[Rfam]
Rfam assigns this 88-nucleotide RNA from Xylanimonas oleitrophica to the family "Actino-pnp RNA".
It is annotated as a cis-regulatory element.
The family's consensus secondary structure is taken from published work.
RNA sequence: UCCGGUCCUCGGUAGUGGCCCCCCGAUCCCCGCCCCGGCACCUCCGGGAAGCCGGGACGUGAUCGGUGAGCCUCGAUCGAAGACCGCC
Numbered sequence: 001u002c003c004g005g006u007c008c009u010c011g012g013u014a015g016u017g018g019c020c021c022c023c024c025g026a027u028c029c030c031c032g033c034c035c036c037g038g039c040a041c042c043u044c045c046g047g048g049a050a051g052c053c054g055g056g057a058c059g060u061g062a063u064c065g066g067u068g069a070g071c072c073u074c075g076a077u078c079g080a081a082g083a084c085c086g087c088c
Base pairs, nucleotide, nucleotide: 003086004085005084006083007082009080010079011078012077013076017072018071019070021068023066024065025064026063027062028061